[Rfam]
RNA sequence: UAUCUUUGCACACGAAUUAGGACAAGCUUAAUUCACGCAUAAUAAUUAUUUAAACAAUAUUAGCAUG
Numbered sequence: 001u002a003u004c005u006u007u008g009c010a011c012a013c014g015a016a017u018u019a020g021g022a023c024a025a026g027c028u029u030a031a032u033u034c035a036c037g038c039a040u041a042a043u044a045a046u047u048a049u050u051u052a053a054a055c056a057a058u059a060u061u062a063g064c065a066u067g
Stems, first nucleotide, its partner, number of pairs: 014034006

Shown here is a 67-nucleotide RNA, a member of the family "S15-Flavobacteria ribosomal protein leader". For this family Rfam cites "Discovery of 20 novel ribosomal leader candidates in bacteria and archaea" (Eckert and Weinberg, BMC Microbiol, 2020). The family is grouped with related families in Rfam's "Ribosomal Protein S15 Leader clan". It is one of the family's seed sequences.